[Rfam]
Nucleotides: 054
Stems, first nucleotide, its partner, number of pairs: 006048007022037006
Number, partner (000 for none) and nucleotide at each position: 001000a002000a003000c004000g005000g006048u007047g008046u009045c010044c011043g012042g013000g014000c015000c016000c017000c018000u019000c020000u021000g022037g023036c024035g025034c026033c027032g028000u029000u030000c031000u032027c033026g034025g035024c036023g037022c038000g039000a040000u041000g042012u043011c044010g045009g046008a047007c048006g049000a050000c051000a052000g053000c054000g

terC RNA: a 54-nucleotide RNA from Aestuariivirga litoralis. Rfam classes the family as a cis-regulatory element. The match comes from Rfam's covariance-model search (52 bits).